[Rfam]
Nucleotides: 128
Base pairs, nucleotide, nucleotide: 002060003059004058005057006056007055008054015048016047019044021042022041023040024039025037026036027035028034069122071120072119073118074117077114078113080111082107083106084105085104086103087102088101089100090099091098092097
Number, partner (000 for none) and nucleotide at each position: 001000c002060a003059c004058c005057u006056c007055a008054c009000u010000u011000a012000u013000a014000a015048g016047c017000c018000g019044g020000g021042g022041g023040a024039c025037u026036a027035g028034c029000u030000g031000u032000u033000u034028g035027u036026u037025a038000u039024g040023u041022u042021c043000a044019c045000u046000a047016g048015u049000a050000a051000a052000a053000c054008g055007u056006g057005a058004g059003g060002u061000a062000a063000a064000g065000a066000a067000a068000a069122g070000a071120g072119a073118c074117a075000a076000c077114c078113a079000g080111a081000c082107a083106c084105c085104g086103g087102g088101a089100a090099u091098g092097u093000u094000u095000u096000u097092a098091u099090g100089u101088u102087u103086u104085c105084g106083g107082u108000c109000a110000c111080u112000a113078u114077g115000u116000g117074u118073g119072u120071c121000c122069c123000a124000c125000a126000c127000u128000c